Shown here is a 109-nucleotide sequence from Oncorhynchus kisutch, a member of the family "mir-63 microRNA precursor family". Pairs were carried over by alignment from the consensus structure, which was predicted with RNAalifold.
[Rfam]
RNA sequence: UACACUCGUAUCAGUGUCAUGGACGUUUACACUCGUAUCAGUGUCAUGGACAUUUACACUCCAUGACACUGAUACGAGUGUAAACAUCCAUGACACUGAUACGAGUGUA
Numbered sequence: 001u002a003c004a005c006u007c008g009u010a011u012c013a014g015u016g017u018c019a020u021g022g023a024c025g026u027u028u029a030c031a032c033u034c035g036u037a038u039c040a041g042u043g044u045c046a047u048g049g050a051c052a053u054u055u056a057c058a059c060u061c062c063a064u065g066a067c068a069c070u071g072a073u074a075c076g077a078g079u080g081u082a083a084a085c086a087u088c089c090a091u092g093a094c095a096c097u098g099a100u101a102c103g104a105g106u107g108u109a
Stems, first nucleotide, its partner, number of pairs: 001109005007103008017093007025085018044066007